This 65-nucleotide RNA sequence from Octopus sinensis belongs to the Rfam family "mir-1991 microRNA precursor family". The organism belongs to Octopus, within Eukaryota. A search with the family's covariance model found it, with a score of 74 bits.
RNA sequence: UAACUUACCCUGUCAAUCGGAGAAGUUUAUAUUCAACCUUGCUUCUCGUUUCACAGGGUAUAUUC
Numbered sequence: 001u002a003a004c005u006u007a008c009c010c011u012g013u014c015a016a017u018c019g020g021a022g023a024a025g026u027u028u029a030u031a032u033u034c035a036a037c038c039u040u041g042c043u044u045c046u047c048g049u050u051u052c053a054c055a056g057g058g059u060a061u062a063u064u065c
Stems, first nucleotide, its partner, number of pairs: 006060008015051002018048002021046006
Dot-bracket structure: .....((((((((.((.((.((((((..............)))))))).)).)))))))).....